[Rfam]
RNA sequence: GAGGACAAUUGAGGAGUCCUGUGGCUGGUUGUAGCCAUGGGAUCUCCAGCUGCAUGCAAGAGCAACCUGGAAAGACUUUGACAGCACAGGUCAGUAAAUACCUGCAGCUGCCACUUGGCUUUCCUAUAAUG
Numbered sequence: 001g002a003g004g005a006c007a008a009u010u011g012a013g014g015a016g017u018c019c020u021g022u023g024g025c026u027g028g029u030u031g032u033a034g035c036c037a038u039g040g041g042a043u044c045u046c047c048a049g050c051u052g053c054a055u056g057c058a059a060g061a062g063c064a065a066c067c068u069g070g071a072a073a074g075a076c077u078u079u080g081a082c083a084g085c086a087c088a089g090g091u092c093a094g095u096a097a098a099u100a101c102c103u104g105c106a107g108c109u110g111c112c113a114c115u116u117g118g119c120u121u122u123c124c125u126a127u128a129a130u131g
Stems, first nucleotide, its partner, number of pairs: 016035001019034005069124006084111002087104004
The family of this 131-nucleotide RNA from Callithrix jacchus is "Small nucleolar RNA SNORA44".
Rfam links the family to the GO terms RNA processing and nucleolus.
The source organism's lineage runs through Eukaryota, Opisthokonta, Eumetazoa, Craniata and Callithrix.
From the family's description: ACA44 is a member of the H/ACA class of snoRNA that guide the sites of modification of uridines to pseudouridines.
The family has 27 seed sequences and 1,056 matches in Rfam 15.1.